CpoB/ybgF ICR thermometer: a 153-nucleotide sequence. By type it is an RNA thermoregulator. Its family is annotated with regulation of translation and response to temperature stimulus in the Gene Ontology. The pairing is the family consensus, mapped onto this sequence. It scores 72 bits against the family's covariance model. About the family: Imprinting control region from upstream of cpoB/ybgF (tol/pal system protein).

RNA sequence: UCAAGUUUCUCUGGUUUCUUACGGUAAAGAAAAACCAGCUGUGUUAGGUCACACAGAAGCUGAUUACGCGAAAAACCGUCGUGCAGUCAUUGCAUACUAAUAGAUAAGCGAAAUUAUCUCUUAUGAACAGUAACUUCAGACAUCUACUUGUAG
Numbered sequence: 001u002c003a004a005g006u007u008u009c010u011c012u013g014g015u016u017u018c019u020u021a022c023g024g025u026a027a028a029g030a031a032a033a034a035c036c037a038g039c040u041g042u043g044u045u046a047g048g049u050c051a052c053a054c055a056g057a058a059g060c061u062g063a064u065u066a067c068g069c070g071a072a073a074a075a076c077c078g079u080c081g082u083g084c085a086g087u088c089a090u091u092g093c094a095u096a097c098u099a100a101u102a103g104a105u106a107a108g109c110g111a112a113a114u115u116a117u118c119u120c121u122u123a124u125g126a127a128c129a130g131u132a133a134c135u136u137c138a139g140a141c142a143u144c145u146a147c148u149u150g151u152a153g
Base pairs, nucleotide, nucleotide: 001047003045004044007041014035015034016033017032019030020029055151057149058148059147062144063143065140068137075131076130078128079126080125081124082123083120086117087116089114090113